[Rfam]
This 231-nucleotide part of an RNA from bacterium 1xD42-67 belongs to the Rfam family "Bacterial large subunit ribosomal RNA". Gene Ontology terms of the family: structural constituent of ribosome and ribosome. The family has 102 seed sequences and 51,934 matches in Rfam 15.1.
RNA sequence: GAGUUAUUGUACAUGGCGAGCUUAAGGUGUUGAGCACCGGAGGCGAAGGGAGACCGAGUCUGAAUAGGGCGUUCAGUCGUGUGCAAUAGACCCGAAACCAGGUGACCUAUCCAUGGGCAGGUUGAAGUGGAGGUAAAACUCCAUGGAGGACCGAACCGACCCCCGUUGCAAUGGUGGCGGAUGACCUGUGGAUAGCGGAGAAAUUCUAAUCGAACUUGGAGAUAGCUGGUU
Numbered sequence: 001g002a003g004u005u006a007u008u009g010u011a012c013a014u015g016g017c018g019a020g021c022u023u024a025a026g027g028u029g030u031u032g033a034g035c036a037c038c039g040g041a042g043g044c045g046a047a048g049g050g051a052g053a054c055c056g057a058g059u060c061u062g063a064a065u066a067g068g069g070c071g072u073u074c075a076g077u078c079g080u081g082u083g084c085a086a087u088a089g090a091c092c093c094g095a096a097a098c099c100a101g102g103u104g105a106c107c108u109a110u111c112c113a114u115g116g117g118c119a120g121g122u123u124g125a126a127g128u129g130g131a132g133g134u135a136a137a138a139c140u141c142c143a144u145g146g147a148g149g150a151c152c153g154a155a156c157c158g159a160c161c162c163c164c165g166u167u168g169c170a171a172u173g174g175u176g177g178c179g180g181a182u183g184a185c186c187u188g189u190g191g192a193u194a195g196c197g198g199a200g201a202a203a204u205u206c207u208a209a210u211c212g213a214a215c216u217u218g219g220a221g222a223u224a225g226c227u228g229g230u231u
Stems, first nucleotide, its partner, number of pairs: 005088013020044004026038003048055002058070004091229002094226001098219006107195011118183001120152004127144006156180003160177002163174002197207003